[Rfam]
RNA sequence: UGAAAAGUGUUGAAAGUUUGAAUUAGCUUUUUUCUCCCUGUUUCAGAGAGCCGGUGGGAGCUGUGAACCGGUACACAGGAAGAAGUGAAUUACGUACUGGAGCUUUUUUCUCAGCAGACAGCCUUUGUUUGCUGUGGAAACGGGAAUUCCCGUUACAGAAUACCGAGUGGAAAGCACCAGCUUUCAACAAGGGUGGUACCGCGAUUUACAUCGUCCCUUCU
Numbered sequence: 001u002g003a004a005a006a007g008u009g010u011u012g013a014a015a016g017u018u019u020g021a022a023u024u025a026g027c028u029u030u031u032u033u034c035u036c037c038c039u040g041u042u043u044c045a046g047a048g049a050g051c052c053g054g055u056g057g058g059a060g061c062u063g064u065g066a067a068c069c070g071g072u073a074c075a076c077a078g079g080a081a082g083a084a085g086u087g088a089a090u091u092a093c094g095u096a097c098u099g100g101a102g103c104u105u106u107u108u109u110c111u112c113a114g115c116a117g118a119c120a121g122c123c124u125u126u127g128u129u130u131g132c133u134g135u136g137g138a139a140a141c142g143g144g145a146a147u148u149c150c151c152g153u154u155a156c157a158g159a160a161u162a163c164c165g166a167g168u169g170g171a172a173a174g175c176a177c178c179a180g181c182u183u184u185c186a187a188c189a190a191g192g193g194u195g196g197u198a199c200c201g202c203g204a205u206u207u208a209c210a211u212c213g214u215c216c217c218u219u220c221u
Stems, first nucleotide, its partner, number of pairs: 007103002015098003026086006039075003050072006107139004112134005141152003170185006190218004201214005
RNA: T-box leader
Organism: Salibacterium salarium